The record is an 83-nucleotide RNA from Sulfitobacter undariae, which matches "Singlet oxygen resistance RNA X" in Rfam. Rfam describes the family as follows. SorX (RSs2461)like SorY is a singlet oxygen induced sRNA that counteracts oxidative stress by targeting mRNA for a transporter in Rhodobacter. It also has an impact on resistance against organic hydroperoxides. It targets SD sequence of potA mRNA via an aSD sequence. Lineage of the source: Bacteria > Pseudomonadati > Pseudomonadota > Roseobacteraceae > Sulfitobacter. A reference for the family is Peng et al. (2016), "Regulation of a polyamine transporter by the conserved 3' UTR-derived sRNA SorX confers resistance to singlet oxygen and organic hydroperoxides in Rhodobacter sphaeroides", RNA Biol. Rfam 15.1 lists 528 matches to the family in 356 species. It is annotated as a small RNA. A search with the family's covariance model found it, with a score of 58 bits.

RNA sequence: AACCCGAAGCAGAGUGGCCGGGGUAAUUGCCACUCGUUCCCUCCCUGUUGGACUUGGCCGGGCCUUUGUGCCCGGUCUUUUUU
Numbered sequence: 001a002a003c004c005c006g007a008a009g010c011a012g013a014g015u016g017g018c019c020g021g022g023g024u025a026a027u028u029g030c031c032a033c034u035c036g037u038u039c040c041c042u043c044c045c046u047g048u049u050g051g052a053c054u055u056g057g058c059c060g061g062g063c064c065u066u067u068g069u070g071c072c073c074g075g076u077c078u079u080u081u082u083u
Base pairs, nucleotide, nucleotide: 012035013034014033015032016031017030018029056077057076058075059074060073061072062071063070